This 72-nucleotide sequence from Pantoea sp. Eser belongs to the Rfam family "osmY RNA".
Nucleotides: 072
Stems, first nucleotide, its partner, number of pairs: 002022008026043006
Number, partner (000 for none) and nucleotide at each position: 001000c002022c003021a004020g005019c006018g007017g008016c009015g010000c011000c012000g013000u014000c015009u016008g017007c018006u019005g020004c021003u022002g023000u024000u025000g026043c027042g028041c029040c030039c031038a032000c033000a034000g035000u036000u037000u038031u039030g040029g041028g042027c043026g044000a045000g046000u047000u048000a049000a050000c051000u052000g053000a054000u055000a056000g057000a058000a059000g060000g061000a062000a063000u064000a065000u066000a067000c068000c069000g070000a071000u072000g

Overview:
A search with the family's covariance model found it, with a score of 84 bits. NCBI's taxonomy places the organism under Bacteria, Gammaproteobacteria, Enterobacterales, Erwiniaceae, Pantoea.